RNA sequence: GAUCUCGUCGCAAUGGUAAUUGAGCUUAGUACGAGAGGAACCGCUCAUUCAGAUAAUUGGUUUUUGCGGCUGUCCGACUAAGUAAUACUACGAAGGUACUAUCUAUUAGAUAAUAGCUAAAUACCUCUAAAUUAGAAUCCGUGCCAGAAGCGACGACGCCUCCCGCACGUAUAGAUGGACACGAAUAGGCCUCUGGCUUAGCGUCUUAGCAGGCAAAGAACGCCAACGCUCUGGAACGGGUGUUGGUACUUUGCGAAUUGUAAUUUCAGCACGAGCGGGUCGAAUCCCUUGCAGACGACUUUGAUGUGCGAAAGGGUCCUGUAAGCAGUAGAGUAGCCUUGUUGUUACGAUCUGCUGAGGGUAAGCCCUACUUCGCCUCGAUUUCC
Numbered sequence: 001g002a003u004c005u006c007g008u009c010g011c012a013a014u015g016g017u018a019a020u021u022g023a024g025c026u027u028a029g030u031a032c033g034a035g036a037g038g039a040a041c042c043g044c045u046c047a048u049u050c051a052g053a054u055a056a057u058u059g060g061u062u063u064u065u066g067c068g069g070c071u072g073u074c075c076g077a078c079u080a081a082g083u084a085a086u087a088c089u090a091c092g093a094a095g096g097u098a099c100u101a102u103c104u105a106u107u108a109g110a111u112a113a114u115a116g117c118u119a120a121a122u123a124c125c126u127c128u129a130a131a132u133u134a135g136a137a138u139c140c141g142u143g144c145c146a147g148a149a150g151c152g153a154c155g156a157c158g159c160c161u162c163c164c165g166c167a168c169g170u171a172u173a174g175a176u177g178g179a180c181a182c183g184a185a186u187a188g189g190c191c192u193c194u195g196g197c198u199u200a201g202c203g204u205c206u207u208a209g210c211a212g213g214c215a216a217a218g219a220a221c222g223c224c225a226a227c228g229c230u231c232u233g234g235a236a237c238g239g240g241u242g243u244u245g246g247u248a249c250u251u252u253g254c255g256a257a258u259u260g261u262a263a264u265u266u267c268a269g270c271a272c273g274a275g276c277g278g279g280u281c282g283a284a285u286c287c288c289u290u291g292c293a294g295a296c297g298a299c300u301u302u303g304a305u306g307u308g309c310g311a312a313a314g315g316g317u318c319c320u321g322u323a324a325g326c327a328g329u330a331g332a333g334u335a336g337c338c339u340u341g342u343u344g345u346u347a348c349g350a351u352c353u354g355c356u357g358a359g360g361g362u363a364a365g366c367c368c369u370a371c372u373u374c375g376c377c378u379c380g381a382u383u384u385c386c
Stems, first nucleotide, its partner, number of pairs: 005156007014146004019049001021047005051104004058098002065092002068089002071084003107141001109139001114134003118130001163278004168273002282384005287303001291299001308376005314368003318361002325355004330351001333348005
Description:
The record is a 386-nucleotide part of an RNA from Verticillium dahliae, which matches "Eukaryotic large subunit ribosomal RNA" in Rfam. The family's consensus secondary structure is taken from published work. It is one of the family's seed sequences. Rfam links the family to the GO terms structural constituent of ribosome and ribosome.